[Rfam]
RNA sequence: AUGUUAUCAAGAAAGGUGGAGGGAUUAGACCCUUUGAAACCUUAGCAACCCUUAGAUUUACUGAGAAGGUGCUAAAUUCUACAUAGUUUUUUAUUCAUUUAUUUAAAACUAGAUAGAUAACUA
Numbered sequence: 001a002u003g004u005u006a007u008c009a010a011g012a013a014a015g016g017u018g019g020a021g022g023g024a025u026u027a028g029a030c031c032c033u034u035u036g037a038a039a040c041c042u043u044a045g046c047a048a049c050c051c052u053u054a055g056a057u058u059u060a061c062u063g064a065g066a067a068g069g070u071g072c073u074a075a076a077u078u079c080u081a082c083a084u085a086g087u088u089u090u091u092u093a094u095u096c097a098u099u100u101a102u103u104u105a106a107a108a109c110u111a112g113a114u115a116g117a118u119a120a121c122u123a
Stems, first nucleotide, its partner, number of pairs: 003121006013043005021032003026081004044073004049069002051065004077115001082112001084111007

This 123-nucleotide RNA sequence from Winogradskyella sp. PG-2 belongs to the Rfam family "SAM riboswitch aptamer (S box leader)". Taxonomically the source falls in Winogradskyella (Bacteria, Pseudomonadati, Flavobacteriales, Flavobacteriaceae). Rfam's curators write: The SAM riboswitch is found upstream of a number of genes which code for proteins involved in methionine or cysteine biosynthesis in Gram-positive bacteria.